[Rfam]
RNA sequence: CGAGGGUUGGAAUCACGAUGUUGUGGCCCCCGCUAGCGUUUUAUCCGGCUAUCACGGGGAUCCUCGCAAGCCGGACGGUAUAGCCAUCAACGCUUAAAGUAGGCCGCUGAGGGAAGCUCACAUUGCCCCUGGUGCUCCGAAUUUUAUGUAGUGUCUGAUGCUGCGCGCCGCGGGGGGGUGAGCCGAGUUGGACGGCUCAGAAGGUGCAGACGCCG
Number, nucleotide and partner (000 for none) at each position: 001c032002g031003a000004g029005g028006g027007u026008u000009g000010g000011a000012a000013u000014c000015a000016c000017g000018a000019u000020g000021u000022u000023g000024u000025g000026g007027c006028c005029c004030c000031c002032g001033c000034u000035a000036g000037c000038g000039u000040u000041u000042u000043a000044u075045c074046c073047g072048g071049c070050u000051a000052u000053c000054a000055c000056g000057g000058g000059g000060a000061u000062c000063c174064u173065c172066g171067c170068a000069a000070g049071c048072c047073g046074g045075a044076c000077g000078g000079u000080a000081u000082a000083g000084c000085c160086a159087u158088c157089a156090a154091c153092g152093c151094u150095u000096a000097a000098a000099g000100u000101a000102g000103g000104c000105c000106g000107c000108u000109g000110a000111g000112g000113g000114a000115a000116g000117c000118u000119c000120a000121c000122a000123u000124u000125g000126c000127c000128c000129c000130u000131g000132g000133u000134g000135c000136u000137c000138c000139g000140a000141a000142u000143u000144u000145u000146a000147u000148g000149u000150a094151g093152u092153g091154u090155c000156u089157g088158a087159u086160g085161c209162u208163g207164c206165g205166c204167g000168c000169c000170g067171c066172g065173g064174g063175g000176g000177g000178g000179u199180g198181a197182g196183c195184c194185g000186a000187g000188u000189u000190g000191g000192a000193c000194g184195g183196c182197u181198c180199a179200g000201a000202a000203g000204g166205u165206g164207c163208a162209g161210a000211c000212g000213c000214c000215g000
RNA: PAGEV RNA